[Rfam]
The family of this 83-nucleotide sequence from Pelolinea submarina is "c-di-GMP-I-GGC riboswitch aptamer". Pairs were carried over by alignment from the consensus structure, which is taken from published work. The match comes from Rfam's covariance-model search (68 bits). The family is grouped with related families in Rfam's "c-di-GMP_I riboswitch clan".
RNA sequence: AUCCGAAAAGGCAAACCUGGCGAAAGCUGGGGACGCAAAGCUAUGGGUCUAAAGCAUUCGCUAUGAUCGCCAGGCCGCCGAAG
Numbered sequence: 001a002u003c004c005g006a007a008a009a010g011g012c013a014a015a016c017c018u019g020g021c022g023a024a025a026g027c028u029g030g031g032g033a034c035g036c037a038a039a040g041c042u043a044u045g046g047g048u049c050u051a052a053a054g055c056a057u058u059c060g061c062u063a064u065g066a067u068c069g070c071c072a073g074g075c076c077g078c079c080g081a082a083g
Stems, first nucleotide, its partner, number of pairs: 003080001011036002016031006034069001040075003044072003047067003